Shown here is a 65-nucleotide RNA sequence from Prochlorococcus marinus, a member of the family "Cyano-1 RNA".
RNA sequence: UUAUUUGUGAGGAGUUGAGAUCCUCCGCAGUGGAAACAAGGAAACACUUGCGCCUGAUCUCACAA
Numbered sequence: 001u002u003a004u005u006u007g008u009g010a011g012g013a014g015u016u017g018a019g020a021u022c023c024u025c026c027g028c029a030g031u032g033g034a035a036a037c038a039a040g041g042a043a044a045c046a047c048u049u050g051c052g053c054c055u056g057a058u059c060u061c062a063c064a065a
Stems, first nucleotide, its partner, number of pairs: 018060005026052004030047003
Rfam's curators put it in the seed alignment.